[Rfam]
RNA sequence: ACCGUCCUUUCCGUGGGGCGGCGCCACUGUCCGAUGAACGAGCAGUGAGGGCAGCACUGCUGACGCCUCCGCAACACGCCCGCGUCAGCUACAGCUGGGCUUUACUUUGGUGCAACUUUUGGAAAA
Numbered sequence: 001a002c003c004g005u006c007c008u009u010u011c012c013g014u015g016g017g018g019c020g021g022c023g024c025c026a027c028u029g030u031c032c033g034a035u036g037a038a039c040g041a042g043c044a045g046u047g048a049g050g051g052c053a054g055c056a057c058u059g060c061u062g063a064c065g066c067c068u069c070c071g072c073a074a075c076a077c078g079c080c081c082g083c084g085u086c087a088g089c090u091a092c093a094g095c096u097g098g099g100c101u102u103u104a105c106u107u108u109g110g111u112g113c114a115a116c117u118u119u120u121g122g123a124a125a126a
Base pairs, nucleotide, nucleotide: 005020006018007017008016009015021060022059023058027054028053029052030051031050032049038046039045082113083112084111085110086109087108090104091103093101094100095099
RNA: U4atac minor spliceosomal RNA